[Rfam]
Nucleotides: 085
Base pairs, nucleotide, nucleotide: 001085002084003083004082005081006080007079008078009077010076011075012074013073014072015071016070017069018068019067020066021065022064023063024062025061026060027059028058029057030056031055032054033053034052035051036050038048039047
Number, partner (000 for none) and nucleotide at each position: 001085u002084a003083u004082u005081a006080g007079a008078u009077u010076g011075g012074u013073g014072c015071a016070a017069a018068a019067g020066u021065a022064a023063u024062u025061g026060c027059g028058g029057u030056u031055u032054u033053u034052g035051c036050c037000u038048u039047u040000g041000a042000a043000a044000a045000g046000a047039a048038a049000u050036g051035g052034c053033a054032a055031a056030a057029a058028c059027c060026g061025c062024a063023a064022u065021u066020a067019c068018u069017u070016u071015u072014g073013c074012a075011c076010c077009a078008g079007u080006c081005u082004a083003a084002u085001a
Annotation: A member of the RNA family "mir-548 microRNA precursor family" from Mandrillus leucophaeus, 85 nucleotides long. A search with the family's covariance model found it, with a score of 92 bits.